RNA: pan motif
Organism: Dehalococcoides mccartyi
Nucleotides: 088
Stems, first nucleotide, its partner, number of pairs: 001028003004024005010019002056084003059080005065075003
Number, partner (000 for none) and nucleotide at each position: 001028u002027g003026c004024c005023a006022c007021c008020g009000a010019c011018c012000g013000u014000a015000a016000c017000c018011g019010g020008c021007g022006g023005u024004g025000a026003g027002c028001g029000c030000u031000u032000a033000g034000a035000g036000a037000c038000u039000u040000u041000a042000a043000a044000u045000u046000a047000a048000a049000u050000a051000g052000a053000u054000c055000c056084c057083c058082g059080c060079u061078u062077g063076g064000a065075u066074c067073g068000u069000a070000a071000a072000a073067c074066g075065g076063c077062c078061g079060a080059g081000a082058c083057g084056g085000u086000a087000a088000a